SAM-I/IV (S-adenosyl methionine) riboswitch aptamer: a 97-nucleotide RNA sequence.
RNA sequence: GUCAGGUAUCAAGAGUAGGAUUAAAUUCCUCUCCAACCUGCCAACUCCGGCAAGGUGGAAAAAGUGAUACGGUUGUUCAACAAAAAUAGGAGUAACU
Numbered sequence: 001g002u003c004a005g006g007u008a009u010c011a012a013g014a015g016u017a018g019g020a021u022u023a024a025a026u027u028c029c030u031c032u033c034c035a036a037c038c039u040g041c042c043a044a045c046u047c048c049g050g051c052a053a054g055g056u057g058g059a060a061a062a063a064g065u066g067a068u069a070c071g072g073u074u075g076u077u078c079a080a081c082a083a084a085a086a087u088a089g090g091a092g093u094a095a096c097u
Stems, first nucleotide, its partner, number of pairs: 006070005015031001017030004032059003037055003040051003044093005072081003